[Rfam]
RNA sequence: UCCACCGUGAGGUGGAAUCUGAAGAAAGGAUUAGGCAAAACUCUGGCCUGCUACAUUUGAGGCUAAAUGUAAGCAUGAGAUUGCGCAACAAAUCAAAGUCCGAUAACUGCACGGAAUUGCAUUUAGUAUUUAUGGAGCAGGUAUAGGAGGGAAAGAGCGUGUG
Numbered sequence: 001u002c003c004a005c006c007g008u009g010a011g012g013u014g015g016a017a018u019c020u021g022a023a024g025a026a027a028g029g030a031u032u033a034g035g036c037a038a039a040a041c042u043c044u045g046g047c048c049u050g051c052u053a054c055a056u057u058u059g060a061g062g063c064u065a066a067a068u069g070u071a072a073g074c075a076u077g078a079g080a081u082u083g084c085g086c087a088a089c090a091a092a093u094c095a096a097a098g099u100c101c102g103a104u105a106a107c108u109g110c111a112c113g114g115a116a117u118u119g120c121a122u123u124u125a126g127u128a129u130u131u132a133u134g135g136a137g138c139a140g141g142u143a144u145a146g147g148a149g150g151g152a153a154a155g156a157g158c159g160u161g162u163g
Base pairs, nucleotide, nucleotide: 001016002015003014004013005012006011029162032159036155041149042148043147044146046142047141048140049139050138051137052136054134055133056132062127063126064125066123067122068121069120070119071118072117073101075099076098079094080093081092082091

A member of the RNA family "Group II catalytic intron D1-D4-3" from Bianquea renquensis, 163 nucleotides long. The pairing is the family consensus, mapped onto this sequence.